[Rfam]
RNA sequence: GACGGGCAUGAUUAUUCCCUGUAUUGUCUCUGCAGCUAGAAAGAAGCUCCACAUUUACAUCCUACAUUUCGCUGUUUUAUUCGUAUUACCUCGUCCUGCAGUUUUUAAAUCAAAGUCUCCAUUUUUAAGCUAUACACGCCUAUUCAGGCCCUAAUAUAUAAAUUUCAGGAUAUGAUUAUGUCUAAUACAACGACUGGAACCGUAAAGUGGUUCAACGAAGAUAAAGGUUUUGGUUUUAUCGAGCAGCAAGGUGGCGCCGAUGUGUUUGCCCAUUUCCGCUCAAUUGUGGGUGAUGGUUUCAAAACUCUCAAAGAAGGCCAGAAAGUGCAGUUUACUAUCGGUCGCGGCCAGAAAGGCCCCCAAGCUGAGAAUAUUCAGGCUAUCUGAAUAGCCUGACCGGAAUACUCCGGUUAAUCAGGCCAAGACUAAAAAGCAACCCGCGGGUUGCUUUUUUCA
Numbered sequence: 001g002a003c004g005g006g007c008a009u010g011a012u013u014a015u016u017c018c019c020u021g022u023a024u025u026g027u028c029u030c031u032g033c034a035g036c037u038a039g040a041a042a043g044a045a046g047c048u049c050c051a052c053a054u055u056u057a058c059a060u061c062c063u064a065c066a067u068u069u070c071g072c073u074g075u076u077u078u079a080u081u082c083g084u085a086u087u088a089c090c091u092c093g094u095c096c097u098g099c100a101g102u103u104u105u106u107a108a109a110u111c112a113a114a115g116u117c118u119c120c121a122u123u124u125u126u127a128a129g130c131u132a133u134a135c136a137c138g139c140c141u142a143u144u145c146a147g148g149c150c151c152u153a154a155u156a157u158a159u160a161a162a163u164u165u166c167a168g169g170a171u172a173u174g175a176u177u178a179u180g181u182c183u184a185a186u187a188c189a190a191c192g193a194c195u196g197g198a199a200c201c202g203u204a205a206a207g208u209g210g211u212u213c214a215a216c217g218a219a220g221a222u223a224a225a226g227g228u229u230u231u232g233g234u235u236u237u238a239u240c241g242a243g244c245a246g247c248a249a250g251g252u253g254g255c256g257c258c259g260a261u262g263u264g265u266u267u268g269c270c271c272a273u274u275u276c277c278g279c280u281c282a283a284u285u286g287u288g289g290g291u292g293a294u295g296g297u298u299u300c301a302a303a304a305c306u307c308u309c310a311a312a313g314a315a316g317g318c319c320a321g322a323a324a325g326u327g328c329a330g331u332u333u334a335c336u337a338u339c340g341g342u343c344g345c346g347g348c349c350a351g352a353a354a355g356g357c358c359c360c361c362a363a364g365c366u367g368a369g370a371a372u373a374u375u376c377a378g379g380c381u382a383u384c385u386g387a388a389u390a391g392c393c394u395g396a397c398c399g400g401a402a403u404a405c406u407c408c409g410g411u412u413a414a415u416c417a418g419g420c421c422a423a424g425a426c427u428a429a430a431a432a433g434c435a436a437c438c439c440g441c442g443g444g445u446u447g448c449u450u451u452u453u454u455c456a
Base pairs, nucleotide, nucleotide: 004019005018006017025246028243029242030241042237043236046235048233049232050226054224066222067221068220069219070217071216073214074213077210078209082180083179084178085177087175095169096168097167098166100164101163107125108124109123138149139148140147182197183196184195186193250339251338252337253336254335259267260266271327272326273325274324275323276321278319279317280316284311285310286309288307289306292305294303346359347358361386362385363381364380365378366377367376368375369374389422391420392419393418394417395416396415428453429452430451431450432449433448434447435446436445437444438443

This 456-nucleotide RNA sequence from Bowmanella dokdonensis belongs to the Rfam family "cspA thermoregulator". It scores 89 bits against the family's covariance model. The literature on the family includes a 2010 paper in Mol Cell by Giuliodori et al., "The cspA mRNA is a thermosensor that modulates translation of the cold-shock protein CspA". The family's RNA type in Rfam is RNA thermoregulator.